[Rfam]
RNA sequence: CUACUCGUGCAGAGAAUCACCCUAUGGCUAACUAACACUGCACGAAGGUUAGUAGCUUCUGA
Numbered sequence: 001c002u003a004c005u006c007g008u009g010c011a012g013a014g015a016a017u018c019a020c021c022c023u024a025u026g027g028c029u030a031a032c033u034a035a036c037a038c039u040g041c042a043c044g045a046a047g048g049u050u051a052g053u054a055g056c057u058u059c060u061g062a
Stems, first nucleotide, its partner, number of pairs: 007043006026057002029054001031053006